[Rfam]
RNA sequence: UCGGGAUGCCCUUUGGGGCGUUUCCUCCCAGAACUGGCCGCGCCGCAAGGCGCGGCUUUUUUCGUUGGUGA
Numbered sequence: 001u002c003g004g005g006a007u008g009c010c011c012u013u014u015g016g017g018g019c020g021u022u023u024c025c026u027c028c029c030a031g032a033a034c035u036g037g038c039c040g041c042g043c044c045g046c047a048a049g050g051c052g053c054g055g056c057u058u059u060u061u062u063c064g065u066u067g068g069u070g071a
Stems, first nucleotide, its partner, number of pairs: 008019004037056008
This 71-nucleotide RNA from Phenylobacterium kunshanense belongs to the Rfam family "Makes More Granules Regulator RNA (mmgR)". By type it is a small RNA.